[Rfam]
RNA: Bacterial RNase P class A
Organism: Firmicutes bacterium CAG:103
RNA sequence: CGAGCGGGCCGGACAGCCGCGGGCACGAGCCGAAAGGCUGUGCGUGAGGAAAGUCCGGGCUCCACAGGGCAAGGAUAACGGGUAACACCCGCCAGGGGCGACCCUCGGACAAGUGCAACAGAAACAAACCGCCCGAGCGAUCGGGUAAGGGUGGAAAAGUGAGGUAAGAGCUCACUCGCCGGCUGGAGACAGUGCGGCGCUGUAAACUCUAUCCGGAGCAACACCGCGGAGGGACAUAUGGCCGGCCCGGCCGUCCCAUGGAGGUGGCUGGAACGCACCGGCAACGGUGCGUCUAGAUAGAUGGCUGUCGAUAACAGAACCCGGCUUACAGGCCCGCUCGCUAC
Numbered sequence: 001c002g003a004g005c006g007g008g009c010c011g012g013a014c015a016g017c018c019g020c021g022g023g024c025a026c027g028a029g030c031c032g033a034a035a036g037g038c039u040g041u042g043c044g045u046g047a048g049g050a051a052a053g054u055c056c057g058g059g060c061u062c063c064a065c066a067g068g069g070c071a072a073g074g075a076u077a078a079c080g081g082g083u084a085a086c087a088c089c090c091g092c093c094a095g096g097g098g099c100g101a102c103c104c105u106c107g108g109a110c111a112a113g114u115g116c117a118a119c120a121g122a123a124a125c126a127a128a129c130c131g132c133c134c135g136a137g138c139g140a141u142c143g144g145g146u147a148a149g150g151g152u153g154g155a156a157a158a159g160u161g162a163g164g165u166a167a168g169a170g171c172u173c174a175c176u177c178g179c180c181g182g183c184u185g186g187a188g189a190c191a192g193u194g195c196g197g198c199g200c201u202g203u204a205a206a207c208u209c210u211a212u213c214c215g216g217a218g219c220a221a222c223a224c225c226g227c228g229g230a231g232g233g234a235c236a237u238a239u240g241g242c243c244g245g246c247c248c249g250g251c252c253g254u255c256c257c258a259u260g261g262a263g264g265u266g267g268c269u270g271g272a273a274c275g276c277a278c279c280g281g282c283a284a285c286g287g288u289g290c291g292u293c294u295a296g297a298u299a300g301a302u303g304g305c306u307g308u309c310g311a312u313a314a315c316a317g318a319a320c321c322c323g324g325c326u327u328a329c330a331g332g333c334c335c336g337c338u339c340g341c342u343a344c
Stems, first nucleotide, its partner, number of pairs: 001340010011329001012309007020046002023043005051327003055324005060218004068248002073214005079091004093107001094105004108209002113207002115203003129150002131146006158176006178198004183192003222266004232257002239253005273292008